RNA: Bacterial large subunit ribosomal RNA, nucleotides 1636 to 1987
Organism: Candidatus Tremblayella princeps
RNA sequence: UGGGAUAACUCGGGAGAAGGAACUCGGCAAAUUGAUACCGUAACUUCGGGAUAAGGUAUGCCAGGGCUAGCAGAACCGUAAGGCACGGUGCGGCAGCCCGGGCUGCAACGAAUAGGUAGCUGCGACUGUUUAUUAAAAACACAGCACUCUGCAAACACGAAAGUGGACGUAUAGGGUGUGACGCCUGCCCGGUGCCGGAAGAUUAAUGCAGGGGGUGAGAGCUCCCGAGCAAAGUCCUGGUAAACGGCGGCCGUAACUAUAACGGUCCUAAGGUAGCGAAAUUCCUUGUCGGGUAAGUUCCGACCUGCACGAAUGGCGUAACGAUGGCUACACUGUCUCCUCCCGAGGCCCA
Numbered sequence: 001u002g003g004g005a006u007a008a009c010u011c012g013g014g015a016g017a018a019g020g021a022a023c024u025c026g027g028c029a030a031a032u033u034g035a036u037a038c039c040g041u042a043a044c045u046u047c048g049g050g051a052u053a054a055g056g057u058a059u060g061c062c063a064g065g066g067c068u069a070g071c072a073g074a075a076c077c078g079u080a081a082g083g084c085a086c087g088g089u090g091c092g093g094c095a096g097c098c099c100g101g102g103c104u105g106c107a108a109c110g111a112a113u114a115g116g117u118a119g120c121u122g123c124g125a126c127u128g129u130u131u132a133u134u135a136a137a138a139a140c141a142c143a144g145c146a147c148u149c150u151g152c153a154a155a156c157a158c159g160a161a162a163g164u165g166g167a168c169g170u171a172u173a174g175g176g177u178g179u180g181a182c183g184c185c186u187g188c189c190c191g192g193u194g195c196c197g198g199a200a201g202a203u204u205a206a207u208g209c210a211g212g213g214g215g216u217g218a219g220a221g222c223u224c225c226c227g228a229g230c231a232a233a234g235u236c237c238u239g240g241u242a243a244a245c246g247g248c249g250g251c252c253g254u255a256a257c258u259a260u261a262a263c264g265g266u267c268c269u270a271a272g273g274u275a276g277c278g279a280a281a282u283u284c285c286u287u288g289u290c291g292g293g294u295a296a297g298u299u300c301c302g303a304c305c306u307g308c309a310c311g312a313a314u315g316g317c318g319u320a321a322c323g324a325u326g327g328c329u330a331c332a333c334u335g336u337c338u339c340c341u342c343c344c345g346a347g348g349c350c351c352a
Stems, first nucleotide, its partner, number of pairs: 001352004009347008018338003035059005044049001060103003064099002075089005104108001116331007123323002127141003144179008152169001156165003182318004187248003192245002194241005201236003211226006249267006268272001278305001288304006